A member of the RNA family "Glycine riboswitch aptamer" from Clostridium sp. CAG:81, 104 nucleotides long.
From the family's description: This family represents the bacterial glycine riboswitch.
Lineage of the source: Bacteria > Bacillati > Clostridia > Clostridiaceae > Clostridium.
It scores 54 bits against the family's covariance model.
Its Rfam clan is "Glycine riboswitch clan".
[Rfam]
RNA sequence: UCUGGACACUCUGGAGAGUCUCCGUAUGGAGCGCCGAAGGUGUAAGACCGGUUCAUGUCCAUGGUACCGGUUGAUCUCUCAGGCAAAAGGACAGGGCAUACAAA
Number, nucleotide and partner (000 for none) at each position: 001u000002c000003u000004g000005g000006a099007c000008a000009c096010u095011c094012u093013g092014g000015a000016g000017a000018g000019u000020c031021u030022c029023c028024g000025u000026a000027u000028g023029g022030a021031g020032c000033g084034c083035c082036g080037a079038a000039g000040g078041u000042g076043u000044a000045a000046g072047a071048c070049c069050g068051g067052u066053u000054c000055a000056u000057g000058u000059c000060c000061a000062u000063g000064g000065u000066a052067c051068c050069g049070g048071u047072u046073g000074a000075u000076c042077u000078c040079u037080c036081a000082g035083g034084c033085a000086a000087a000088a000089g000090g000091a000092c013093a012094g011095g010096g009097c000098a000099u006100a000101c000102a000103a000104a000